[Rfam]
RNA sequence: UUUCUCCUUAUGAUGAAACAUUUUCGGAUGUAAACAGCCUAUAGGCUAUUGUCCAAGAGCGCAUAAAAUCGUGUGGAUAUUUCCGUUGCCUUCCUUCUGAUCAUUUUAU
Numbered sequence: 001u002u003u004c005u006c007c008u009u010a011u012g013a014u015g016a017a018a019c020a021u022u023u024u025c026g027g028a029u030g031u032a033a034a035c036a037g038c039c040u041a042u043a044g045g046c047u048a049u050u051g052u053c054c055a056a057g058a059g060c061g062c063a064u065a066a067a068a069u070c071g072u073g074u075g076g077a078u079a080u081u082u083c084c085g086u087u088g089c090c091u092u093c094c095u096u097c098u099g100a101u102c103a104u105u106u107u108a109u
Base pairs, nucleotide, nucleotide: 003108025085026084027083028082
RNA: Small nucleolar RNA Z13/snr52
Organism: Cryptococcus depauperatus